[Rfam]
RNA sequence: AGUCAUAUGCUUGUCUCAAAGAUUAAGCCAUGCAUGUCUAAGUAUACACCUUUACACGGUGAGACUGCGAAUGGCUCAUUAAAUCAGUUAUAGUUUAUUUGAUAGUGCCUACUACUUGGAUAACCGUAGUAAUUCUAGAGCUAAUACAUGCAACAAGUCCCGACUUCUGGAAGGGAUGUAUUUAUUAGAUAUACAAACCAACCGUGGGGGGAAACCUUCAUGUCCUUUGGUGAGUCAUAAUAACUUCGCGAAUCGCAUGCCUUCGGGCGGCGAUGAUUCAUUCAAAUUUCUGCCCUAUCAGCUUUUGAUGGUAGUGUAUUGGACUACCAUGGCGUUUACGGGUAACGGAGAAUUAGGGUUCGAUUCCGGAGAGGGAGCCUGAGAGACGGCUACCACAUCCAAGGAAGGCAGCAGGCGCGCAAAUUACCCAAUCCUGACACAGGGAGGUAGUGACAAUAAAUAACAAUACUGGACUUUUUCAAGUCUAGUAAUUGGAAUGAGAACAAUCUAAAUACCUUAUCGAGUAUCAAUUGGAGGGCAAGUCUGGUGCCAGCAGCCGCGGUAAUUCCAGCUCCAAUAGCGUAUAUUAAAGUUGUUG
Numbered sequence: 001a002g003u004c005a006u007a008u009g010c011u012u013g014u015c016u017c018a019a020a021g022a023u024u025a026a027g028c029c030a031u032g033c034a035u036g037u038c039u040a041a042g043u044a045u046a047c048a049c050c051u052u053u054a055c056a057c058g059g060u061g062a063g064a065c066u067g068c069g070a071a072u073g074g075c076u077c078a079u080u081a082a083a084u085c086a087g088u089u090a091u092a093g094u095u096u097a098u099u100u101g102a103u104a105g106u107g108c109c110u111a112c113u114a115c116u117u118g119g120a121u122a123a124c125c126g127u128a129g130u131a132a133u134u135c136u137a138g139a140g141c142u143a144a145u146a147c148a149u150g151c152a153a154c155a156a157g158u159c160c161c162g163a164c165u166u167c168u169g170g171a172a173g174g175g176a177u178g179u180a181u182u183u184a185u186u187a188g189a190u191a192u193a194c195a196a197a198c199c200a201a202c203c204g205u206g207g208g209g210g211g212a213a214a215c216c217u218u219c220a221u222g223u224c225c226u227u228u229g230g231u232g233a234g235u236c237a238u239a240a241u242a243a244c245u246u247c248g249c250g251a252a253u254c255g256c257a258u259g260c261c262u263u264c265g266g267g268c269g270g271c272g273a274u275g276a277u278u279c280a281u282u283c284a285a286a287u288u289u290c291u292g293c294c295c296u297a298u299c300a301g302c303u304u305u306u307g308a309u310g311g312u313a314g315u316g317u318a319u320u321g322g323a324c325u326a327c328c329a330u331g332g333c334g335u336u337u338a339c340g341g342g343u344a345a346c347g348g349a350g351a352a353u354u355a356g357g358g359u360u361c362g363a364u365u366c367c368g369g370a371g372a373g374g375g376a377g378c379c380u381g382a383g384a385g386a387c388g389g390c391u392a393c394c395a396c397a398u399c400c401a402a403g404g405a406a407g408g409c410a411g412c413a414g415g416c417g418c419g420c421a422a423a424u425u426a427c428c429c430a431a432u433c434c435u436g437a438c439a440c441a442g443g444g445a446g447g448u449a450g451u452g453a454c455a456a457u458a459a460a461u462a463a464c465a466a467u468a469c470u471g472g473a474c475u476u477u478u479u480c481a482a483g484u485c486u487a488g489u490a491a492u493u494g495g496a497a498u499g500a501g502a503a504c505a506a507u508c509u510a511a512a513u514a515c516c517u518u519a520u521c522g523a524g525u526a527u528c529a530a531u532u533g534g535a536g537g538g539c540a541a542g543u544c545u546g547g548u549g550c551c552a553g554c555a556g557c558c559g560c561g562g563u564a565a566u567u568c569c570a571g572c573u574c575c576a577a578u579a580g581c582g583u584a585u586a587u588u589a590a591a592g593u594u595g596u597u598g
Stems, first nucleotide, its partner, number of pairs: 001588003005585007014458001016456001020451001021418001027416003031413003036068002041066003048060002075371003085292003090287002094285002100280003115150001117148002124140001127137003157177005164170002182243006197231004210219003253273004258269004294342003301333003308330008346368004350361004373394002376391003396407001398405002424449001426448003432444005464494003467490010501521002503518001505517001531577006544571004553560002
Rfam assigns this 598-nucleotide part of an RNA from Telonema subtile to the family "Eukaryotic small subunit ribosomal RNA". The family is grouped with related families in Rfam's "SSU clan". The base pairs follow the family's consensus structure, which is taken from published work. Rfam's curators put it in the seed alignment. The source organism's lineage runs through Eukaryota, Telonemia, Telonemida, Telonemidae and Telonema. Its family is annotated with structural constituent of ribosome and ribosome in the Gene Ontology.